[Rfam]
RNA: Antisense to traI
Organism: Escherichia coli
RNA sequence: CGGCACGCUGUCCCGACGUUAACAUCUCCAUGAGUUCGCCGGGUACCCUCUCCAUCAGCGGCGUGACCGCCUCCUUA
Number, nucleotide and partner (000 for none) at each position: 001c069002g068003g067004c065005a064006c063007g062008c061009u060010g059011u058012c043013c042014c041015g040016a000017c038018g037019u000020u000021a036022a035023c034024a000025u033026c032027u000028c000029c000030a000031u000032g026033a025034g023035u022036u021037c018038g017039c000040c015041g014042g013043g012044u000045a000046c000047c000048c000049u000050c000051u000052c000053c000054a000055u000056c000057a000058g011059c010060g009061g008062c007063g006064u005065g004066a000067c003068c002069g001070c000071c000072u000073c000074c000075u000076u000077a000